[Rfam]
Rfam assigns this 177-nucleotide RNA sequence from Vibrio sp. 10N.286.49.B3 to the family "Lysine riboswitch aptamer". The source organism's lineage runs through Bacteria, Pseudomonadati, Pseudomonadota, Gammaproteobacteria and Vibrio. A search with the family's covariance model found it, with a score of 110 bits. Gene Ontology term of the family: lysine biosynthetic process.
RNA sequence: AAAAUAAGUAGAGGCGCUCUGCCUAUGAGUAUCUUAGUUGAGAUGGACAAUCUUUGACGCUAAGGGAAAGGAGUUAGGGCCGAAGUAGUAAUAGUUGUCCGCUUUACUACUGGGGUUGUUCUUAAUAGGAGCAGCACUGUCAUUCUGAUCUUGUCGGAAUGGGGAGCUACAACAAUU
Numbered sequence: 001a002a003a004a005u006a007a008g009u010a011g012a013g014g015c016g017c018u019c020u021g022c023c024u025a026u027g028a029g030u031a032u033c034u035u036a037g038u039u040g041a042g043a044u045g046g047a048c049a050a051u052c053u054u055u056g057a058c059g060c061u062a063a064g065g066g067a068a069a070g071g072a073g074u075u076a077g078g079g080c081c082g083a084a085g086u087a088g089u090a091a092u093a094g095u096u097g098u099c100c101g102c103u104u105u106a107c108u109a110c111u112g113g114g115g116u117u118g119u120u121c122u123u124a125a126u127a128g129g130a131g132c133a134g135c136a137c138u139g140u141c142a143u144u145c146u147g148a149u150c151u152u153g154u155c156g157g158a159a160u161g162g163g164g165a166g167c168u169a170c171a172a173c174a175a176u177u
Base pairs, nucleotide, nucleotide: 008170009169010168011167016080017079018078019077020076021075023073024072032065033064034063035062036061037060038059084111085110086109087108088107089106090105091104093103094102095101112138113137115135116134117133118132119131120130121129122128140162141161142160143159144158145157146156